RNA sequence: UCUUCAUUUCGAACACUCUCUCAUCGGUCAGAGAAGCGAGAAAGCGUAGGAAAUGAGGAGA
Numbered sequence: 001u002c003u004u005c006a007u008u009u010c011g012a013a014c015a016c017u018c019u020c021u022c023a024u025c026g027g028u029c030a031g032a033g034a035a036g037c038g039a040g041a042a043a044g045c046g047u048a049g050g051a052a053a054u055g056a057g058g059a060g061a
Base pairs, nucleotide, nucleotide: 001059002058003057004056005055006054007053010050013047014046016044017043019041020040021039022038
Shown here is a 61-nucleotide sequence from Pristionchus pacificus, a member of the family "mir-8364 microRNA precursor family". Rfam links the family to the GO terms RISC complex and miRNA-mediated post-transcriptional gene silencing. The family has 13 seed sequences and 3,320 matches in Rfam 15.1. The organism belongs to Pristionchus, within Eukaryota. A search with the family's covariance model found it, with a score of 71 bits. The base pairs follow the family's consensus structure, which was predicted with RNAalifold.